[Rfam]
RNA: c-di-AMP riboswitch aptamer (ydaO/yuaA leader)
RNA sequence: AGUUAAAAUCUGUCAGCUUUAGUUUGAGAACGGAGGAACCAAUUUUAGGGGCUAAUCUCUAAUUCUGAUAAGAGAGAGACACUUUCCAGUCUUAGCCCGUCAGCUAACUCCGUCGGCAAUGGAAGGAGUACCC
Numbered sequence: 001a002g003u004u005a006a007a008a009u010c011u012g013u014c015a016g017c018u019u020u021a022g023u024u025u026g027a028g029a030a031c032g033g034a035g036g037a038a039c040c041a042a043u044u045u046u047a048g049g050g051g052c053u054a055a056u057c058u059c060u061a062a063u064u065c066u067g068a069u070a071a072g073a074g075a076g077a078g079a080c081a082c083u084u085u086c087c088a089g090u091c092u093u094a095g096c097c098c099g100u101c102a103g104c105u106a107a108c109u110c111c112g113u114c115g116g117c118a119a120u121g122g123a124a125g126g127a128g129u130a131c132c133c
Stems, first nucleotide, its partner, number of pairs: 011118004018029003030113006040048001049098003057074004077092004